RNA sequence: CCCCCCGAAGUGUGUCUCAGCACAGCCCCACCGGAGGGUGCCUACGGGGUAGAGCUACGGAUUGGAGGUGGCUGGCGGGAUGACCGCCAGUGCCUCCAGUCCAACUCCGAACCCGUAGGCCCCGUAGAUGGUGGGAGUGGGGCACCCGGGGUAAGCCUGGGUGCCGAGAGGGGAACAACCCAGACCGGGGUUAAGGCCCCUAAGUGCCGGCUAAGUGCCAAUUAAAGGGCGUCCCGAGCCUUAGACAGCGGGGAGGUGGGCCUAACAGCAGCCAUCCUCUAAGGAGUGCGUAACAGCUCACCCGCCGAGGCUCGGGGCCCCGAAAAUUGGUCGGGGCUUAAGCCGGCCGCCGAGACCCCGGGGCACCACCGCUAUGCGGUGGUGAUCCGGUAGGGGGGCGCCGAGGUGGGGCAGAAGCCGGGCCGUGAGGUCCGGUGGACCCGCCUCGGGUGCGGAU
Numbered sequence: 001c002c003c004c005c006c007g008a009a010g011u012g013u014g015u016c017u018c019a020g021c022a023c024a025g026c027c028c029c030a031c032c033g034g035a036g037g038g039u040g041c042c043u044a045c046g047g048g049g050u051a052g053a054g055c056u057a058c059g060g061a062u063u064g065g066a067g068g069u070g071g072c073u074g075g076c077g078g079g080a081u082g083a084c085c086g087c088c089a090g091u092g093c094c095u096c097c098a099g100u101c102c103a104a105c106u107c108c109g110a111a112c113c114c115g116u117a118g119g120c121c122c123c124g125u126a127g128a129u130g131g132u133g134g135g136a137g138u139g140g141g142g143c144a145c146c147c148g149g150g151g152u153a154a155g156c157c158u159g160g161g162u163g164c165c166g167a168g169a170g171g172g173g174a175a176c177a178a179c180c181c182a183g184a185c186c187g188g189g190g191u192u193a194a195g196g197c198c199c200c201u202a203a204g205u206g207c208c209g210g211c212u213a214a215g216u217g218c219c220a221a222u223u224a225a226a227g228g229g230c231g232u233c234c235c236g237a238g239c240c241u242u243a244g245a246c247a248g249c250g251g252g253g254a255g256g257u258g259g260g261c262c263u264a265a266c267a268g269c270a271g272c273c274a275u276c277c278u279c280u281a282a283g284g285a286g287u288g289c290g291u292a293a294c295a296g297c298u299c300a301c302c303c304g305c306c307g308a309g310g311c312u313c314g315g316g317g318c319c320c321c322g323a324a325a326a327u328u329g330g331u332c333g334g335g336g337c338u339u340a341a342g343c344c345g346g347c348c349g350c351c352g353a354g355a356c357c358c359c360g361g362g363g364c365a366c367c368a369c370c371g372c373u374a375u376g377c378g379g380u381g382g383u384g385a386u387c388c389g390g391u392a393g394g395g396g397g398g399c400g401c402c403g404a405g406g407u408g409g410g411g412c413a414g415a416a417g418c419c420g421g422g423c424c425g426u427g428a429g430g431u432c433c434g435g436u437g438g439a440c441c442c443g444c445c446u447c448g449g450g451u452g453c454g455g456a457u
Base pairs, nucleotide, nucleotide: 001398002397003396004395005394006393011024012023013022014021015020026137027135028134029133030132031131032130036123037122038121040120041119042118043117044116045115046114047113052108053106054105060101061100062099063098064097065096066095067094068093069092073089074088075087076086077085078084141165142164143163144162145161146160147159148158149157170181171180172179185361186360187359188358189357190356191355195351196350197349204348206347207346208345209344210343211342227321228320229319231318232317233316234315235314236313237312238311239310240309248305249304250303251302252301254278255277256276259273260272261271279283284299288297289296362388363387364384365383366382367381368380369379370378399452401449402448403447404446405445406444407443408442409441410440417436418435419434420433421432422431423430424429
The record is a 457-nucleotide part of an RNA from Ignisphaera aggregans, which matches "Archaeal large subunit ribosomal RNA" in Rfam. Its family is annotated with structural constituent of ribosome and ribosome in the Gene Ontology. Rfam's curators put it in the seed alignment.